[Rfam]
Small nucleolar RNA snoR53Y: a 74-nucleotide sequence from Salix brachista.
RNA sequence: GUUCCCAGUGAUGCUCAACCAUGCUAAUGCUGAUCAUUGAUGACAAACUCUUUCUUAAUAUUGCUGAGGGAACA
Numbered sequence: 001g002u003u004c005c006c007a008g009u010g011a012u013g014c015u016c017a018a019c020c021a022u023g024c025u026a027a028u029g030c031u032g033a034u035c036a037u038u039g040a041u042g043a044c045a046a047a048c049u050c051u052u053u054c055u056u057a058a059u060a061u062u063g064c065u066g067a068g069g070g071a072a073c074a
Stems, first nucleotide, its partner, number of pairs: 001073005
Source information:
Rfam links the family to the GO terms nucleolus and RNA processing. The family is grouped with related families in Rfam's "snoR53 clan". Lineage of the source: Eukaryota > Tracheophyta > eudicotyledons > Salicaceae > Salix.